Rfam assigns this 158-nucleotide RNA sequence from Chlamydiales bacterium SCGC AG-110-P3 to the family "Group II catalytic intron D1-D4-3".
[Rfam]
RNA sequence: UCCAUCGUGAGGUGGAAUCUGAAGGAAGCAAAACGCUGCCCUGAUGAACAAGAAGCGGAUUAGGCGGUCGUGGAGGAUAAGUAGGCCUAUGACUACAAAGUCCAAUACCCUUACAGAAUCCACGCACGUAGAUCCGACAGGGAUAAGCGGGAGAGUUU
Numbered sequence: 001u002c003c004a005u006c007g008u009g010a011g012g013u014g015g016a017a018u019c020u021g022a023a024g025g026a027a028g029c030a031a032a033a034c035g036c037u038g039c040c041c042u043g044a045u046g047a048a049c050a051a052g053a054a055g056c057g058g059a060u061u062a063g064g065c066g067g068u069c070g071u072g073g074a075g076g077a078u079a080a081g082u083a084g085g086c087c088u089a090u091g092a093c094u095a096c097a098a099a100g101u102c103c104a105a106u107a108c109c110c111u112u113a114c115a116g117a118a119u120c121c122a123c124g125c126a127c128g129u130a131g132a133u134c135c136g137a138c139a140g141g142g143a144u145a146a147g148c149g150g151g152a153g154a155g156u157u158u
Stems, first nucleotide, its partner, number of pairs: 001016006028156002034149004039142005056136004064129003069124006075103004081096004
Rfam links the family to the GO term Group II intron splicing. Taxonomically the source falls in Chlamydiales (Bacteria, Pseudomonadati, Chlamydiota, Chlamydiia).